[Rfam]
RNA sequence: AAAAAGGGUGCUCGUCCUGGCAUGUUCCCGUAUUAGGAACUUAAAUGCAGACGCAUUGCGUCAUUGGCCCAAUCCUACGUUCCUUGAAUGGGGCGGGGGCGUGCGCUGAAUUGCCGCCUUUGUUGGGAUCCAAUGUGCCCAGUGGGGUAUGGCUUUGCAUAUCCAGUGCGUAAUUUUUGUAUUUCGGGGCAGGCGGCUGCACGCUUUCUGAGCAGCUGGAUAGCAGAUACUUCUGCGUGCCAGCAGCUCGUGCGCUGCGCCCCA
Numbered sequence: 001a002a003a004a005a006g007g008g009u010g011c012u013c014g015u016c017c018u019g020g021c022a023u024g025u026u027c028c029c030g031u032a033u034u035a036g037g038a039a040c041u042u043a044a045a046u047g048c049a050g051a052c053g054c055a056u057u058g059c060g061u062c063a064u065u066g067g068c069c070c071a072a073u074c075c076u077a078c079g080u081u082c083c084u085u086g087a088a089u090g091g092g093g094c095g096g097g098g099g100c101g102u103g104c105g106c107u108g109a110a111u112u113g114c115c116g117c118c119u120u121u122g123u124u125g126g127g128a129u130c131c132a133a134u135g136u137g138c139c140c141a142g143u144g145g146g147g148u149a150u151g152g153c154u155u156u157g158c159a160u161a162u163c164c165a166g167u168g169c170g171u172a173a174u175u176u177u178u179g180u181a182u183u184u185c186g187g188g189g190c191a192g193g194c195g196g197c198u199g200c201a202c203g204c205u206u207u208c209u210g211a212g213c214a215g216c217u218g219g220a221u222a223g224c225a226g227a228u229a230c231u232u233c234u235g236c237g238u239g240c241c242a243g244c245a246g247c248u249c250g251u252g253c254g255c256u257g258c259g260c261c262c263c264a
Base pairs, nucleotide, nucleotide: 008169009168010167011166012165013053014052015051016050054144055143056142057141058140060138061137062135063134064133065132066131067130145164146163147162148161149160150159151158187262188261189260190259193258194257195256196255197254199253200252201251202250
RNA: U11 spliceosomal RNA
Organism: Drosophila grimshawi